[Rfam]
RNA: Small nucleolar RNA SNORD58
Organism: Aptenodytes forsteri
RNA sequence: UUGCUGUGAUGACCAUCUUAGGACACCUUUGGAAUACCCAUGAAAAAAAAAAAAAGUUGUUAUUUCUGAGCAAC
Numbered sequence: 001u002u003g004c005u006g007u008g009a010u011g012a013c014c015a016u017c018u019u020a021g022g023a024c025a026c027c028u029u030u031g032g033a034a035u036a037c038c039c040a041u042g043a044a045a046a047a048a049a050a051a052a053a054a055a056g057u058u059g060u061u062a063u064u065u066c067u068g069a070g071c072a073a074c
Stems, first nucleotide, its partner, number of pairs: 001073004